[Rfam]
RNA: 6C RNA
Organism: Phytoactinopolyspora halophila
Nucleotides: 072
Stems, first nucleotide, its partner, number of pairs: 001033002004030009034068013
Number, partner (000 for none) and nucleotide at each position: 001033c002032g003000u004030g005029a006028c007027u008026c009025g010024g011023u012022c013000c014000a015000c016000c017000c018000c019000c020000c021000u022012g023011a024010c025009c026008g027007a028006g029005u030004c031000c032002c033001g034068c035067g036066c037065g038064g039063u040062c041061c042060c043059c044058g045057u046056c047000u048000u049000c050000c051000c052000a053000c054000c055000c056046g057045g058044c059043g060042g061041g062040g063039a064038c065037c066036g067035c068034g069000c070000c071000c072000u